[Rfam]
Nucleotides: 085
Base pairs, nucleotide, nucleotide: 003052005050006049007048008047009046010045011044012043015040016039017073018072019071020070021069024037025036026035027034062080064078065077066076
Number, partner (000 for none) and nucleotide at each position: 001000a002000a003052g004000u005050a006049g007048u008047c009046g010045c011044a012043u013000g014000a015040c016039u017073g018072g019071c020070g021069g022000a023000a024037g025036u026035g027034g028000a029000g030000u031000u032000u033000a034027c035026c036025a037024c038000a039016g040015g041000g042000a043012g044011u045010g046009u047008g048007a049006c050005u051000u052003u053000u054000u055000c056000c057000a058000u059000u060000a061000a062080u063000a064078g065077c066076c067000g068000a069021c070020c071019g072018c073017c074000u075000g076066g077065g078064c079000a080062a081000g082000a083000a084000a085000c
This 85-nucleotide RNA from Heliorestis acidaminivorans belongs to the Rfam family "ZMP/ZTP riboswitch aptamer (pfl RNA motif)". The base pairs follow the family's consensus structure, which is taken from published work.